[Rfam]
This 375-nucleotide RNA sequence from Legionella nautarum belongs to the Rfam family "Bacterial RNase P class A". It is annotated as a ribozyme. Rfam's curators write: Ribonuclease P (RNase P) is a ubiquitous endoribonuclease, found in archaea, bacteria and eukarya as well as chloroplasts and mitochondria. Its best characterised activity is the generation of mature 5'-ends of tRNAs by cleaving the 5'-leader elements of precursor-tRNAs. Cellular RNase Ps are ribonucleoproteins. RNA from bacterial RNase Ps retains its catalytic activity in the absence of the protein subunit, i.e. it is a ribozyme. Isolated eukaryotic and archaeal RNase P RNA has not been shown to retain its catalytic function, but is still essential for the catalytic activity of the holoenzyme. Although the archaeal and eukaryotic holoenzyme s have a much greater protein content than the bacterial ones, the RNA cores from all the three lineages are homologous -- helices corresponding to P1, P2, P3, P4, and P10/11 are common to all cellular RNase P RNAs. Yet, there is considerable sequence variation, particularly among the eukaryotic RNAs. Identified in Yersinia as Ysr151/RnpB. The organism belongs to Legionella, within Bacteria.
RNA sequence: AGAGUCGGUCAGGCAAUCGCUCUUUGUGCAAUACAAAGGGAGGAAAGUCCGGGCUCCAGAGGGCAGGGUGCCAGGUAACGCCUGGGAGGUGAAAGCCUACGGAAAGUGCCACAGAAAAUAUACCGCCUUAUUUUUUUCAGUACUAAAAUAAGGUAAGGGUGAAAUGGUGCGGUAAGAGCGCACCGCACGGUUGGCAACAGUCGUGGCAGGGAAAACCCCACCUGGAGCAAGACCAAAUAGGAAUCCUGCUUACCUUUGCGGUAAGAACGUAUGGCCCGUACGGGAUUCGGGUAGGUUGCUUGAGACUUGUGGUGACGCAGGUCCUAGAUGAAUGAUUGUCCGCGACAGAACCCGGCUUAUCGACCGACUUCAACU
Numbered sequence: 001a002g003a004g005u006c007g008g009u010c011a012g013g014c015a016a017u018c019g020c021u022c023u024u025u026g027u028g029c030a031a032u033a034c035a036a037a038g039g040g041a042g043g044a045a046a047g048u049c050c051g052g053g054c055u056c057c058a059g060a061g062g063g064c065a066g067g068g069u070g071c072c073a074g075g076u077a078a079c080g081c082c083u084g085g086g087a088g089g090u091g092a093a094a095g096c097c098u099a100c101g102g103a104a105a106g107u108g109c110c111a112c113a114g115a116a117a118a119u120a121u122a123c124c125g126c127c128u129u130a131u132u133u134u135u136u137u138c139a140g141u142a143c144u145a146a147a148a149u150a151a152g153g154u155a156a157g158g159g160u161g162a163a164a165u166g167g168u169g170c171g172g173u174a175a176g177a178g179c180g181c182a183c184c185g186c187a188c189g190g191u192u193g194g195c196a197a198c199a200g201u202c203g204u205g206g207c208a209g210g211g212a213a214a215a216c217c218c219c220a221c222c223u224g225g226a227g228c229a230a231g232a233c234c235a236a237a238u239a240g241g242a243a244u245c246c247u248g249c250u251u252a253c254c255u256u257u258g259c260g261g262u263a264a265g266a267a268c269g270u271a272u273g274g275c276c277c278g279u280a281c282g283g284g285a286u287u288c289g290g291g292u293a294g295g296u297u298g299c300u301u302g303a304g305a306c307u308u309g310u311g312g313u314g315a316c317g318c319a320g321g322u323c324c325u326a327g328a329u330g331a332a333u334g335a336u337u338g339u340c341c342g343c344g345a346c347a348g349a350a351c352c353c354g355g356c357u358u359a360u361c362g363a364c365c366g367a368c369u370u371c372a373a374c375u
Stems, first nucleotide, its partner, number of pairs: 002370009011360001012340007020040009045358003049355005054227004061277004066223005071085005086100001087098004101218002106216002109211002123158002125154009166184006185207001186205008231297004241288006268282005304323008